[Rfam]
RNA: Group II catalytic intron D1-D4-1
RNA sequence: AAAUCCGGUUGAAACAAGAUUUGCCGUGAGGAGUCAGCAGAGGCCAUAGUACAAAGGCGUUCUAGAUGCCGAUGGAAGGGC
Numbered sequence: 001a002a003a004u005c006c007g008g009u010u011g012a013a014a015c016a017a018g019a020u021u022u023g024c025c026g027u028g029a030g031g032a033g034u035c036a037g038c039a040g041a042g043g044c045c046a047u048a049g050u051a052c053a054a055a056g057g058c059g060u061u062c063u064a065g066a067u068g069c070c071g072a073u074g075g076a077a078g079g080g081c
Stems, first nucleotide, its partner, number of pairs: 001021002004019002008015002034041002043081003052074002056070003